Guanidine-I riboswitch aptamer: a 152-nucleotide RNA from Cohnella sp. OV330. On this family, see Trachman RJ 3rd and Ferre-D'Amare, RNA 2021: "An uncommon [K(+)(Mg(2+))2] metal ion triad imparts stability and selectivity to the Guanidine-I riboswitch". The base pairs follow the family's consensus structure. Taxonomically the source falls in Cohnella (Bacteria, Bacilli, Caryophanales, Paenibacillaceae). A search with the family's covariance model found it, with a score of 77 bits.

[Rfam]
RNA sequence: GAAAAAGCGGUCUAGGGUUCCGUUGAUGCUUCUCGCAUCAAGACUGGUCCAAGAGACGGCGUAUGGCGGCGCGGCCGGCGCAGAUCGAGCAGAUCAUGCGGAUCGGCAGGGCGAUCCGCCAUAUGACACGGAAGGAUAAAAGCCUGGGAGAU
Numbered sequence: 001g002a003a004a005a006a007g008c009g010g011u012c013u014a015g016g017g018u019u020c021c022g023u024u025g026a027u028g029c030u031u032c033u034c035g036c037a038u039c040a041a042g043a044c045u046g047g048u049c050c051a052a053g054a055g056a057c058g059g060c061g062u063a064u065g066g067c068g069g070c071g072c073g074g075c076c077g078g079c080g081c082a083g084a085u086c087g088a089g090c091a092g093a094u095c096a097u098g099c100g101g102a103u104c105g106g107c108a109g110g111g112c113g114a115u116c117c118g119c120c121a122u123a124u125g126a127c128a129c130g131g132a133a134g135g136a137u138a139a140a141a142g143c144c145u146g147g148g149a150g151a152u
Stems, first nucleotide, its partner, number of pairs: 007060002010057003015050002020047002022044001023041006061124008127147001129150001133145003
Dot-bracket structure: ......((.(((..((...(((((((((.......))))))..).)).))....))).))((((((((................................................))))))))..(.[...(((.......))).)..]..